[Rfam]
RNA sequence: UUCCUGUAGACUUUUGGGGGGAUUUUCCCAGGGUCUCUGUUUGCAGAGACCCUGGGAAAAUCCUCCAAAAAAGUCUGCAGGAA
Dot-bracket structure: (((((((((..((...(((((((((((((((...(((((....)))))...)))))))))))))))...))...)))))))))
Numbered sequence: 001u002u003c004c005u006g007u008a009g010a011c012u013u014u015u016g017g018g019g020g021g022a023u024u025u026u027c028c029c030a031g032g033g034u035c036u037c038u039g040u041u042u043g044c045a046g047a048g049a050c051c052c053u054g055g056g057a058a059a060a061u062c063c064u065c066c067a068a069a070a071a072a073g074u075c076u077g078c079a080g081g082a083a
Stems, first nucleotide, its partner, number of pairs: 001083009012071002017066015035048005